[Rfam]
RNA: Small nucleolar RNA SNORD90
RNA sequence: AAGUUUUCUAAGUGUCUAAUGAUGAAUUUCAUAGGGCAGAUUCUGAGGUGAAAAUUUAAUUCAUCACUGAUACUCCUACUGUGGAAUCUGAAGACACUUGAAAACGU
Numbered sequence: 001a002a003g004u005u006u007u008c009u010a011a012g013u014g015u016c017u018a019a020u021g022a023u024g025a026a027u028u029u030c031a032u033a034g035g036g037c038a039g040a041u042u043c044u045g046a047g048g049u050g051a052a053a054a055u056u057u058a059a060u061u062c063a064u065c066a067c068u069g070a071u072a073c074u075c076c077u078a079c080u081g082u083g084g085a086a087u088c089u090g091a092a093g094a095c096a097c098u099u100g101a102a103a104a105c106g107u
Stems, first nucleotide, its partner, number of pairs: 009100009026087007033077004039071001042070002045067001047065006